[Rfam]
RNA sequence: AACCCGAAGCAUAUGUCCGGGCAAUGACAUAUACCUCCCUGUUGGACUUGGGCCGGACAUAUUGUCUGGCCCAUUUU
Numbered sequence: 001a002a003c004c005c006g007a008a009g010c011a012u013a014u015g016u017c018c019g020g021g022c023a024a025u026g027a028c029a030u031a032u033a034c035c036u037c038c039c040u041g042u043u044g045g046a047c048u049u050g051g052g053c054c055g056g057a058c059a060u061a062u063u064g065u066c067u068g069g070c071c072c073a074u075u076u077u
Base pairs, nucleotide, nucleotide: 011032012031013030014029015028016027017026051071052070053069054068055067056066057065058064
Background
This 77-nucleotide RNA sequence from Sulfitobacter mediterraneus belongs to the Rfam family "Singlet oxygen resistance RNA X". The organism belongs to Sulfitobacter, within Bacteria. On this family, see Peng et al., RNA Biol 2016: "Regulation of a polyamine transporter by the conserved 3' UTR-derived sRNA SorX confers resistance to singlet oxygen and organic hydroperoxides in Rhodobacter sphaeroides". Rfam's curators write: SorX (RSs2461)like SorY is a singlet oxygen induced sRNA that counteracts oxidative stress by targeting mRNA for a transporter in Rhodobacter.